[Rfam]
RNA: c-di-GMP-I riboswitch aptamer
RNA sequence: UUCUGAAAAAGGCAAACUUCUUCGAAAGGGAAGGACGCAAAGCCAUGAGCCUAAGCACAUGUUGUUGUGUAUGGUCGUCAGGUUGCCAGG
Numbered sequence: 001u002u003c004u005g006a007a008a009a010a011g012g013c014a015a016a017c018u019u020c021u022u023c024g025a026a027a028g029g030g031a032a033g034g035a036c037g038c039a040a041a042g043c044c045a046u047g048a049g050c051c052u053a054a055g056c057a058c059a060u061g062u063u064g065u066u067g068u069g070u071a072u073g074g075u076c077g078u079c080a081g082g083u084u085g086c087c088a089g090g
Base pairs, nucleotide, nucleotide: 012038013037017033018032019031020030022029023028041084042083043082044081046080047079048078049075050074051073056069057068058067059066